[Rfam]
Description: The family of this 134-nucleotide RNA from Carlito syrichta is "Small nucleolar RNA SNORA49". The family's RNA type in Rfam is H/ACA-box small nucleolar RNA. A search with the family's covariance model found it, with a score of 117 bits. The source organism's lineage runs through Eukaryota, Sarcopterygii, Euarchontoglires, Tarsiidae and Carlito.

RNA sequence: AUUCUUCAGACUUACCCCAGGGGCUUUUUUGCCUAUAAAGUGCCCUGGUAUUGCCUGAGAACAGACAAGAAAGCACAGAUCCCUCCCCAGUGAGGCUCUGUUUUAUUUUGGGGCCUACAAGUUGAGUUAACAGU
Numbered sequence: 001a002u003u004c005u006u007c008a009g010a011c012u013u014a015c016c017c018c019a020g021g022g023g024c025u026u027u028u029u030u031g032c033c034u035a036u037a038a039a040g041u042g043c044c045c046u047g048g049u050a051u052u053g054c055c056u057g058a059g060a061a062c063a064g065a066c067a068a069g070a071a072a073g074c075a076c077a078g079a080u081c082c083c084u085c086c087c088c089a090g091u092g093a094g095g096c097u098c099u100g101u102u103u104u105a106u107u108u109u110g111g112g113g114c115c116u117a118c119a120a121g122u123u124g125a126g127u128u129a130a131c132a133g134u
Stems, first nucleotide, its partner, number of pairs: 003061001005059005011053001017048006023041005072128003076124002085113006092107002095104001